[Rfam]
Shown here is a 76-nucleotide RNA sequence from Candidatus Vecturithrix granuli, a member of the family "c-di-GMP-I-GGC riboswitch aptamer".
The organism belongs to Candidatus Vecturithrix, within Bacteria.
RNA sequence: AUAGAUAAAGCCAAACUUAUCGAGAGAUAAGGACGGAAAGCUGCGGGUCUUUUUGAAGAUAGCCGGGUUGCCUGAA
Numbered sequence: 001a002u003a004g005a006u007a008a009a010g011c012c013a014a015a016c017u018u019a020u021c022g023a024g025a026g027a028u029a030a031g032g033a034c035g036g037a038a039a040g041c042u043g044c045g046g047g048u049c050u051u052u053u054u055g056a057a058g059a060u061a062g063c064c065g066g067g068u069u070g071c072c073u074g075a076a
Stems, first nucleotide, its partner, number of pairs: 003073002011036002016031006034062001039069004044065003047060003